Shown here is a 92-nucleotide sequence, a member of the family "L2-Alphaproteobacteria ribosomal protein leader". Rfam's curators put it in the seed alignment. For this family Rfam cites "Discovery of 20 novel ribosomal leader candidates in bacteria and archaea" (Eckert and Weinberg, BMC Microbiol, 2020).

RNA sequence: GGGGACCUUCGGGGCCCUAAAAGACCGAGCAAAACAAAUGCUCGAAACAUACUGGUCGGGGCAACCCGAUCUUGCUUAACGGAAGACAGAAA
Number, nucleotide and partner (000 for none) at each position: 001g018002g017003g016004g015005a000006c014007c013008u012009u000010c000011g000012g008013g007014g006015c004016c003017c002018u001019a000020a000021a000022a000023g000024a000025c000026c068027g067028a000029g065030c000031a000032a000033a000034a000035c000036a000037a000038a000039u063040g062041c061042u060043c059044g000045a000046a000047a000048c000049a000050u000051a000052c000053u000054g000055g000056u000057c000058g000059g043060g042061g041062c040063a039064a000065c029066c000067c027068g026069a000070u000071c000072u000073u000074g000075c000076u000077u000078a000079a000080c000081g000082g000083a000084a000085g000086a000087c000088a000089g000090a000091a000092a000